[Rfam]
Shown here is a 31-nucleotide RNA from Alligator sinensis, a member of the family "Iron response element II". Gene Ontology term of the family: response to iron ion. It scores 30 bits against the family's covariance model. NCBI's taxonomy places the organism under Eukaryota, Teleostomi, Sauria, Alligatoridae, Alligator.
Nucleotides: 031
Base pairs, nucleotide, nucleotide: 002030003029004028005027006026007025009024010023011022012021013020014018
Number, partner (000 for none) and nucleotide at each position: 001000c002030a003029u004028u005027u006026a007025u008000c009024a010023a011022a012021g013020a014018c015000a016000g017000u018014g019000c020013u021012u022011u023010u024009u025007a026006u027005a028004a029003a030002u031000a